Rfam assigns this 108-nucleotide RNA from Paenibacillus sp. FSL H8-0548 to the family "Purine riboswitch aptamer".

RNA sequence: AUUUUCAUUAACUAAAUAAUUCGUAUAACCUCACGGAAAUGGCUUAAAAGGGUGAGGGUUUCUACGGGAAGCCUUAACUUCCUAACUACGAAUAUGCGAUCAUUUUUU
Numbered sequence: 001a002u003u004u005u006c007a008u009u010a011a012c013u014a015a016a017u018a019a020u021u022c023g024u025a026u027a028a029c030c031u032c033a034c035g036g037a038a039a040u041g042g043c044u045u046a047a048a049a050g051g052g053u054g055a056g057g058g059u060u061u062c063u064a065c066g067g068g069a070a071g072c073c074u075u076a077a078c079u080u081c082c083u084a085a086c087u088a089c090g091a092a093u094a095u096g097c098g099a100u101c102a103u104u105u106u107u108u
Base pairs, nucleotide, nucleotide: 019093020092021091022090023089024088025087029057030056031055032054033053034052066083067082068081069080070079071078

From the family's description: Riboswitches are metabolite binding domains within certain messenger RNAs that serve as precision sensors for their corresponding targets.